[Rfam]
A member of the RNA family "small nucleolar RNA snoR137" from Ananas comosus, 134 nucleotides long.
RNA sequence: GUUGCUUCCACUGGAAGAGUGGCCUCCUCAGUUUGGCCACUCCUUAGACGGAAGCAUAAAUAAACUUUGGUCAGUAUUAAACAGCAUGAUGUUUCCUCUCUGUAGCAUCGUGUUACCUGUCUCCUGGUACAUUU
Numbered sequence: 001g002u003u004g005c006u007u008c009c010a011c012u013g014g015a016a017g018a019g020u021g022g023c024c025u026c027c028u029c030a031g032u033u034u035g036g037c038c039a040c041u042c043c044u045u046a047g048a049c050g051g052a053a054g055c056a057u058a059a060a061u062a063a064a065c066u067u068u069g070g071u072c073a074g075u076a077u078u079a080a081a082c083a084g085c086a087u088g089a090u091g092u093u094u095c096c097u098c099u100c101u102g103u104a105g106c107a108u109c110g111u112g113u114u115a116c117c118u119g120u121c122u123c124c125u126g127g128u129a130c131a132u133u134u
Stems, first nucleotide, its partner, number of pairs: 003056006015045003019041001020039005070128005076122001083114003087110005

Overview
The family's consensus secondary structure was predicted with RNAalifold. A reference for the family is Chen and Wu (2009), "Mining small RNA sequencing data: a new approach to identify small nucleolar RNAs in Arabidopsis", Nucleic Acids Res. Taxonomically the source falls in Ananas (Eukaryota, Streptophytina, Magnoliopsida, Mesangiospermae).